[Rfam]
RNA sequence: UUUGACAGAUUAUUUGCCUGAUAUCAGGCAAAGGCUGGUGAUCAUUUGAUCACCAGCCU
Numbered sequence: 001u002u003u004g005a006c007a008g009a010u011u012a013u014u015u016g017c018c019u020g021a022u023a024u025c026a027g028g029c030a031a032a033g034g035c036u037g038g039u040g041a042u043c044a045u046u047u048g049a050u051c052a053c054c055a056g057c058c059u
Base pairs, nucleotide, nucleotide: 015030016029017028018027033058034057035056036055037054038053039052040051041050042049
The record is a 59-nucleotide RNA sequence from Lacimicrobium alkaliphilum, which matches "Pseudomonas sRNA P26" in Rfam. A reference for the family is Livny et al. (2006), "Identification of 17 Pseudomonas aeruginosa sRNAs and prediction of sRNA-encoding genes in 10 diverse pathogens using the bioinformatic tool sRNAPredict2", Nucleic Acids Res. The family's RNA type in Rfam is non-coding RNA gene. Lineage of the source: Bacteria > Pseudomonadati > Gammaproteobacteria > Alteromonadales > Lacimicrobium. The family's consensus secondary structure was predicted with RNAalifold. This small RNA (sRNA) was computationally identified in the genome of the opportunistic pathogen Pseudomonas aeruginosa and its expression verified by northern blot analysis. P26 is conserved across many Gammaproteobacteria species and appears to be consistently located between the DNA directed RNA polymerase (beta subunit) and 50S ribosomal protein L7/L12 genes.